A member of the RNA family "RNA Staph. aureus E (RoxS)" from Bacillus aerolatus, 108 nucleotides long. The family's RNA type in Rfam is small RNA. A search with the family's covariance model found it, with a score of 100 bits. Its family is annotated with regulation of translational initiation in the Gene Ontology. A reference for the family is Durand et al. (2015), "A nitric oxide regulated small RNA controls expression of genes involved in redox homeostasis in Bacillus subtilis", PLoS Genet. It was shown to be regulated by the presence of nitric oxide (NO). In Bacillus subtilis it controls expression of genes with functions related to oxidative stress and oxidation-reduction reactions and it was renamed RoxS (for related to oxidative stress).
[Rfam]
RNA sequence: GUGAAGUUGAUCACACGCAAACAUAUACCCCUUUGUUUGACCGUGAAAAAUUUCUCCCAUCCCCUUUGUUCGUGAGAAAAGGCCUUGUAAUGAUACAAGGUCUUUUCU
Numbered sequence: 001g002u003g004a005a006g007u008u009g010a011u012c013a014c015a016c017g018c019a020a021a022c023a024u025a026u027a028c029c030c031c032u033u034u035g036u037u038u039g040a041c042c043g044u045g046a047a048a049a050a051u052u053u054c055u056c057c058c059a060u061c062c063c064c065u066u067u068g069u070u071c072g073u074g075a076g077a078a079a080a081g082g083c084c085u086u087g088u089a090a091u092g093a094u095a096c097a098a099g100g101u102c103u104u105u106u107c108u
Stems, first nucleotide, its partner, number of pairs: 003054006011046004018039006070074001078105011